[Rfam]
RNA sequence: CUGGUGUGAAAGACAUGGGUAGUGAGAUGGUUAGCAAACGUUCGUCUUACUACUCUGUCUUUUGCACUAGU
Number, nucleotide and partner (000 for none) at each position: 001c000002u000003g000004g000005u000006g000007u000008g063009a062010a061011a060012g059013a058014c057015a056016u000017g055018g054019g053020u000021a051022g050023u049024g048025a047026g046027a045028u044029g043030g000031u000032u000033a000034g000035c000036a000037a000038a000039c000040g000041u000042u000043c029044g028045u027046c026047u025048u024049a023050c022051u021052a000053c019054u018055c017056u015057g014058u013059c012060u011061u010062u009063u008064g000065c000066a000067c000068u000069a000070g000071u000
RNA: mir-71 microRNA precursor family
Organism: Candidula unifasciata